6S / SsrS RNA: a 182-nucleotide RNA sequence from Marinobacter sp. R17. On this family, see Wassarman and Storz, Cell 2000: "6S RNA regulates E. coli RNA polymerase activity". Rfam describes the family as follows. E. coli 6S RNA was the first non coding RNA to be sequenced, but its function was unknown until recently. The source organism's lineage runs through Bacteria, Pseudomonadati, Pseudomonadota, Marinobacteraceae and Marinobacter.

RNA sequence: CACUUCCUGGGGUGUUCGCUGGUCGGAUACGUCCUCGAGCCGAUGCGCAAUACCCAGGUGGCUACUUCAGGGCAUUGUGAGCAUGUCCCCCACGCAGGGGAAAGCCUAAUGUGUCACAGCGGCCACCACCUUGAACUUUAGGGUUCAAGGGCCACAUCCGAUAACGGCAUCCCGGGAAGCUU
Numbered sequence: 001c002a003c004u005u006c007c008u009g010g011g012g013u014g015u016u017c018g019c020u021g022g023u024c025g026g027a028u029a030c031g032u033c034c035u036c037g038a039g040c041c042g043a044u045g046c047g048c049a050a051u052a053c054c055c056a057g058g059u060g061g062c063u064a065c066u067u068c069a070g071g072g073c074a075u076u077g078u079g080a081g082c083a084u085g086u087c088c089c090c091c092a093c094g095c096a097g098g099g100g101a102a103a104g105c106c107u108a109a110u111g112u113g114u115c116a117c118a119g120c121g122g123c124c125a126c127c128a129c130c131u132u133g134a135a136c137u138u139u140a141g142g143g144u145u146c147a148a149g150g151g152c153c154a155c156a157u158c159c160g161a162u163a164a165c166g167g168c169a170u171c172c173c174g175g176g177a178a179g180c181u182u
Base pairs, nucleotide, nucleotide: 003179004178005177006176007175008174009173010172011171012170013169014168015167017166018165031152032151033150034149037146038145039144040143041142057127058126059125061123062122063121065119066118071115072114073113074112075111081105082104086101087100088099089098090097
Dot-bracket structure: ..(((((((((((((.((............((((..(((((...............(((.(((.((....(((((.....((...(((((......)))))..)).....)))))..)).))).)))..............)))))..))))............)))))))))))))))...